The record is an 86-nucleotide RNA sequence from Nicotiana sylvestris, which matches "mir-156 microRNA precursor family" in Rfam.

[Rfam]
Nucleotides: 086
Base pairs, nucleotide, nucleotide: 002085003084004083005082006081007080009078010076011075012074013072014071015070016069017068018067019066020065021064023062024061025060
Number, partner (000 for none) and nucleotide at each position: 001000c002085u003084g004083a005082c006081a007080g008000a009078a010076g011075a012074g013072a014071g015070u016069g017068a018067g019066c020065a021064c022000a023062c024061g025060c026000a027000g028000g029000c030000a031000a032000u033000u034000g035000u036000a037000u038000a039000u040000a041000g042000a043000u044000u045000a046000u047000a048000u049000u050000a051000c052000u053000g054000u055000c056000a057000u058000u059000u060025g061024c062023g063000u064021g065020u066019g067018c068017u069016c070015a071014c072013u073000u074012c075011u076010c077000u078009u079000g080007c081006u082005g083004u084003c085002a086000u
Source information:
Rfam describes the family as follows. This family represents the plant microRNA (miRNA) precursor mir-156. Taxonomically the source falls in Nicotiana (Eukaryota, Magnoliopsida, Pentapetalae, lamiids).